[Rfam]
RNA sequence: GGACAGGUUCUCUAGGGUUCCGCAUCAAAUGGACUGGUCCGAGAGAGAACCCGCAAUCGAUUUCUGGUUGCGACACGGAGGGACAAAAGCCCGGGAGAU
Number, nucleotide and partner (000 for none) at each position: 001g000002g000003a000004c000005a000006g000007g050008u049009u048010c047011u046012c045013u000014a000015g040016g039017g000018u000019u000020c037021c036022g034023c031024a030025u029026c000027a000028a000029a025030u024031g023032g000033a000034c022035u000036g021037g020038u000039c016040c015041g000042a000043g000044a000045g012046a011047g010048a009049a008050c007051c000052c072053g071054c070055a069056a068057u067058c066059g065060a000061u000062u000063u000064c000065u059066g058067g057068u056069u055070g054071c053072g052073a000074c094075a000076c097077g000078g000079a000080g092081g091082g090083a000084c000085a000086a000087a000088a000089g000090c082091c081092c080093g000094g074095g000096a000097g076098a000099u000

The record is a 99-nucleotide sequence from Pontibacillus halophilus, which matches "Guanidine-I riboswitch aptamer" in Rfam. The match comes from Rfam's covariance-model search (84 bits). Rfam 15.1 lists 1,509 matches to the family in 1,281 species. Pairs were carried over by alignment from the consensus structure.